RNA sequence: GGCCACCUUCGGGGGGCUAAACAUAGCGGAGAUAUCGGGCGAACCCGUUGCUCCGCAUUGCUAAACGGAAGACAGAAA
Numbered sequence: 001g002g003c004c005a006c007c008u009u010c011g012g013g014g015g016g017c018u019a020a021a022c023a024u025a026g027c028g029g030a031g032a033u034a035u036c037g038g039g040c041g042a043a044c045c046c047g048u049u050g051c052u053c054c055g056c057a058u059u060g061c062u063a064a065a066c067g068g069a070a071g072a073c074a075g076a077a078a
Base pairs, nucleotide, nucleotide: 001018002017003016004015006014007013008012026056027055028054029053030052031051
RNA: L2-Alphaproteobacteria ribosomal protein leader
Organism: Shimia thalassica